RNA sequence: GUCCUGCUGCGGCUCUCGUCGAAGGCAACAAUAUCCCAGCGACCUUAAUUCACUCGAAGGGAGCUGUCCCUGUCCGUCCCCGUGGGGGCGGAUACAUGGCGCCCACCUGGUCAUCCAGGUCGAGGGGGUUGAACCGUCCUUCACGGCUCUACGCGGCGCCGCC
Number, nucleotide and partner (000 for none) at each position: 001g000002u161003c000004c000005u158006g157007c156008u155009g154010c153011g152012g149013c000014u000015c146016u000017c145018g144019u143020c000021g000022a000023a000024g000025g000026c000027a000028a000029c000030a000031a000032u000033a000034u128035c127036c126037c125038a000039g000040c122041g121042a120043c119044c118045u000046u000047a000048a000049u000050u000051c000052a000053c000054u000055c000056g000057a000058a000059g104060g103061g102062a000063g100064c099065u098066g097067u096068c000069c000070c000071u000072g093073u092074c091075c090076g089077u088078c087079c086080c085081c000082g000083u000084g000085g080086g079087g078088g077089c076090g075091g074092a073093u072094a000095c000096a067097u066098g065099g064100c063101g000102c061103c060104c059105a000106c000107c000108u000109g000110g000111u000112c000113a000114u000115c000116c000117a000118g044119g043120u042121c041122g040123a000124g000125g037126g036127g035128g034129u000130u000131g000132a000133a000134c000135c000136g000137u000138c000139c000140u000141u000142c000143a019144c018145g017146g015147c000148u000149c012150u000151a000152c011153g010154c009155g008156g007157c006158g005159c000160c000161g002162c000163c000